[Rfam]
RNA: TPP riboswitch aptamer (THI element)
Organism: Pukyongiella litopenaei
RNA sequence: AACCAACGUCAGGGGAGUCCCGCCAAGGGGACUGAGAGGCUGACAGGGGGAAACCCCGGUGACGCGACCCUUUGAACCUGACCCAGUUGAUGCUGGCGUAGGAAGACCGAAGGGUAUCCCC
Numbered sequence: 001a002a003c004c005a006a007c008g009u010c011a012g013g014g015g016a017g018u019c020c021c022g023c024c025a026a027g028g029g030g031a032c033u034g035a036g037a038g039g040c041u042g043a044c045a046g047g048g049g050g051a052a053a054c055c056c057c058g059g060u061g062a063c064g065c066g067a068c069c070c071u072u073u074g075a076a077c078c079u080g081a082c083c084c085a086g087u088u089g090a091u092g093c094u095g096g097c098g099u100a101g102g103a104a105g106a107c108c109g110a111a112g113g114g115u116a117u118c119c120c121c
Stems, first nucleotide, its partner, number of pairs: 008107003011071004017032005040064001077102004083096004